[Rfam]
RNA: ssnA RNA
RNA sequence: AUUAAAAACGCUGUAACGGAGUGCUUCGCGCACGGGCUUUAUAUUACA
Dot-bracket structure: .......(.(((........((((.....)))).))).).........